[Rfam]
RNA: Mammalian CPEB3 ribozyme
Organism: Crocodylus porosus
RNA sequence: AGAUGUCACAAGGUAGUCGCCACAGAAGUGCUCACAGUGCAGCCCUGUCAGAUUCCAAGGAAUCUGUGAAUUCUGCU
Numbered sequence: 001a002g003a004u005g006u007c008a009c010a011a012g013g014u015a016g017u018c019g020c021c022a023c024a025g026a027a028g029u030g031c032u033c034a035c036a037g038u039g040c041a042g043c044c045c046u047g048u049c050a051g052a053u054u055c056c057a058a059g060g061a062a063u064c065u066g067u068g069a070a071u072u073c074u075g076c077u
Stems, first nucleotide, its partner, number of pairs: 013045001016043002023075005028040003049066007
Dot-bracket structure: ............[..[[.....((((((((.......))).]].]...(((((((....)))))))....)))))..